Source information:
The family of this 302-nucleotide sequence from Labeo rohita is "Nuclear RNase P". Its Rfam clan is "RNaseP clan". Ribonuclease P (RNase P) is a ubiquitous endoribonuclease, found in archaea, bacteria and eukarya as well as chloroplasts and mitochondria. Its best characterised activity is the generation of mature 5'-ends of tRNAs by cleaving the 5'-leader elements of precursor-tRNAs. Cellular RNase Ps are ribonucleoproteins. RNA from bacterial RNase Ps retains its catalytic activity in the absence of the protein subunit, i.e. it is a ribozyme. The source organism's lineage runs through Eukaryota, Deuterostomia, Gnathostomata, Teleostei and Labeo. Rfam classes the family as a ribozyme.

RNA sequence: GUGGGAGGAAAUUCACUGUAGAGGUUACAAACUGAGUGGUAAUCACUCAUCCAAUCACCUCGGGGAAGGUCUGAGACAAGAGCCAAUUGUUGUCCUCACAGGACAUCGUCUCAACAGAUGAGCGAGCGCACAGGGAAGUUGGGUCAGAACGCGGUGUUCUCGCACAAGACGUUGGAACGCAAAAUAGCGAACCAACUGAUGCGAUCCCCGUCGACUUGGAAACACUCGCGGCUGGCGCAAUGAGUUCAAUGUGUGAACUGGCACAAGAUGCCAGAACCCAAUUCAGACUACUCUCCUUCCAC
Numbered sequence: 001g002u003g004g005g006a007g008g009a010a011a012u013u014c015a016c017u018g019u020a021g022a023g024g025u026u027a028c029a030a031a032c033u034g035a036g037u038g039g040u041a042a043u044c045a046c047u048c049a050u051c052c053a054a055u056c057a058c059c060u061c062g063g064g065g066a067a068g069g070u071c072u073g074a075g076a077c078a079a080g081a082g083c084c085a086a087u088u089g090u091u092g093u094c095c096u097c098a099c100a101g102g103a104c105a106u107c108g109u110c111u112c113a114a115c116a117g118a119u120g121a122g123c124g125a126g127c128g129c130a131c132a133g134g135g136a137a138g139u140u141g142g143g144u145c146a147g148a149a150c151g152c153g154g155u156g157u158u159c160u161c162g163c164a165c166a167a168g169a170c171g172u173u174g175g176a177a178c179g180c181a182a183a184a185u186a187g188c189g190a191a192c193c194a195a196c197u198g199a200u201g202c203g204a205u206c207c208c209c210g211u212c213g214a215c216u217u218g219g220a221a222a223c224a225c226u227c228g229c230g231g232c233u234g235g236c237g238c239a240a241u242g243a244g245u246u247c248a249a250u251g252u253g254u255g256a257a258c259u260g261g262c263a264c265a266a267g268a269u270g271c272c273a274g275a276a277c278c279c280a281a282u283u284c285a286g287a288c289u290a291c292u293c294u295c296c297u298u299c300c301a302c
Base pairs, nucleotide, nucleotide: 001302002301003300004299007296008295009294012257013256014255015254016253021061022060023059024058034048035047036046037045038044071286072285073284074283075282081233082232083231084230091105092104093103094102095101106121107120108119109118110117111116122229123228124227125226126225128223143215144214145213258274259273260272261271262270263269